[Rfam]
RNA sequence: CACAUUUUUAUACGCUUCCUUUGUAUAAUCGCGAUAAUAUGGAUCGCAAGUUUCUACCUAACAACCGUAAAUUGUUAGACUAUAAGGGAAAGCGGUACGUAU
Numbered sequence: 001c002a003c004a005u006u007u008u009u010a011u012a013c014g015c016u017u018c019c020u021u022u023g024u025a026u027a028a029u030c031g032c033g034a035u036a037a038u039a040u041g042g043a044u045c046g047c048a049a050g051u052u053u054c055u056a057c058c059u060a061a062c063a064a065c066c067g068u069a070a071a072u073u074g075u076u077a078g079a080c081u082a083u084a085a086g087g088g089a090a091a092g093c094g095g096u097a098c099g100u101a102u
Base pairs, nucleotide, nucleotide: 018088019087020086021085022084023083024082025081029049031047032046033045034044035043058078059077060076061075062074063073064072

This 102-nucleotide RNA from Priestia veravalensis belongs to the Rfam family "Purine riboswitch aptamer". The organism belongs to Priestia, within Bacteria. Gene Ontology term of the family: purine nucleobase biosynthetic process.